A member of the RNA family "Ruegeria cis2 sRNA" from Rhodovulum iodosum, 155 nucleotides long. Taxonomically the source falls in Rhodovulum (Bacteria, Pseudomonadati, Rhodobacterales, Paracoccaceae). It scores 87 bits against the family's covariance model. Pairs were carried over by alignment from the consensus structure, which was predicted with RNAfold.
RNA sequence: AUCGAGCUGAAAUGCGGAUUGUAAUUGAUGAAGGUGAAGCCGCGGCACUGGUCGAUCGCGUGAAACAGCGGGUUCCAGUCGAAGAAGACAAGGAGGGAGCCCGGCAUCGCGUUGGCCACGAACAUCUUGCCCGAGGCGAUCAUGUUGGCGCGCUG
Numbered sequence: 001a002u003c004g005a006g007c008u009g010a011a012a013u014g015c016g017g018a019u020u021g022u023a024a025u026u027g028a029u030g031a032a033g034g035u036g037a038a039g040c041c042g043c044g045g046c047a048c049u050g051g052u053c054g055a056u057c058g059c060g061u062g063a064a065a066c067a068g069c070g071g072g073u074u075c076c077a078g079u080c081g082a083a084g085a086a087g088a089c090a091a092g093g094a095g096g097g098a099g100c101c102c103g104g105c106a107u108c109g110c111g112u113u114g115g116c117c118a119c120g121a122a123c124a125u126c127u128u129g130c131c132c133g134a135g136g137c138g139a140u141c142a143u144g145u146u147g148g149c150g151c152g153c154u155g
Stems, first nucleotide, its partner, number of pairs: 002037003007033002015027003039059002042056001043054004066155005073083003089148001091146002094143001096141001100136002102133003105129002109125001112121003